[Rfam]
RNA sequence: GUGCGCGGGGAUCGCCUCCGGCCAGCGCGUCGCGCCCGCCGGAGCGCUUGAC
Numbered sequence: 001g002u003g004c005g006c007g008g009g010g011a012u013c014g015c016c017u018c019c020g021g022c023c024a025g026c027g028c029g030u031c032g033c034g035c036c037c038g039c040c041g042g043a044g045c046g047c048u049u050g051a052c
Stems, first nucleotide, its partner, number of pairs: 016044007025035004

Rfam assigns this 52-nucleotide RNA sequence from Albimonas pacifica to the family "ffh sRNA". By type it is a small RNA. The base pairs follow the family's consensus structure, which is taken from published work. On this family, see Meyer et al., BMC Genomics 2009: "Identification of candidate structured RNAs in the marine organism 'Candidatus Pelagibacter ubique'". It scores 49 bits against the family's covariance model.